[Rfam]
RNA sequence: UUAGGGUAAUGUAUAUACAACAGUAAUGUUAUGUACAGUAUAUAUGUAAUUCUAUAUGUAACAUUUUUGUUGUCUUAAAUUGCUCUCU
Numbered sequence: 001u002u003a004g005g006g007u008a009a010u011g012u013a014u015a016u017a018c019a020a021c022a023g024u025a026a027u028g029u030u031a032u033g034u035a036c037a038g039u040a041u042a043u044a045u046g047u048a049a050u051u052c053u054a055u056a057u058g059u060a061a062c063a064u065u066u067u068u069g070u071u072g073u074c075u076u077a078a079a080u081u082g083c084u085c086u087c088u
Stems, first nucleotide, its partner, number of pairs: 003086008017073007025065011037053002
Dot-bracket structure: ..((((((((......(((((((.(((((((((((.((.............)).))))))))))).))))))).....))))))))..
RNA: mir-3327 microRNA precursor family
Organism: Danaus chrysippus